[Rfam]
RNA sequence: AACGUUAAUGGCAAACCCUUCGAAAGAUGGGGACGCAAAGCCAAGGGCCUUUCACUUGUGUGAAUGGCAGCCGGUUACCAAAA
Dot-bracket structure: ...(......((...(((.((....)).)))..[))..((((..(((((................))).]))))))..)....